Notes
Rfam assigns this 96-nucleotide RNA sequence from Canis lupus to the family "mir-8813 microRNA precursor family". The family has 2 seed sequences and 307 matches in Rfam 15.1. Its family is annotated with miRNA-mediated post-transcriptional gene silencing and RISC complex in the Gene Ontology. It is one of the family's seed sequences. Pairs were carried over by alignment from the consensus structure, which was predicted with RNAalifold. Taxonomically the source falls in Canis lupus (Eukaryota, Eumetazoa, Deuterostomia, Tetrapoda).

RNA sequence: UGGUGACCUGAGGUUCCCCGGCUGUCACUCUGUCCCAGGCCCGUCCUGGCCCCAGGCACAGGCUGAGUCGCAGUAGAGUCUGUGGGGUCCUGACCC
Number, nucleotide and partner (000 for none) at each position: 001u000002g095003g094004u093005g089006a088007c087008c086009u085010g000011a081012g080013g079014u078015u077016c076017c000018c000019c000020g000021g074022c073023u072024g071025u070026c000027a068028c067029u066030c065031u000032g063033u062034c061035c000036c000037a000038g000039g057040c056041c055042c000043g053044u000045c000046c000047u000048g000049g000050c000051c000052c000053c043054a000055g041056g040057c039058a000059c000060a000061g034062g033063c032064u000065g030066a029067g028068u027069c000070g025071c024072a023073g022074u021075a000076g016077a015078g014079u013080c012081u011082g000083u000084g000085g009086g008087g007088u006089c005090c000091u000092g000093a004094c003095c002096c000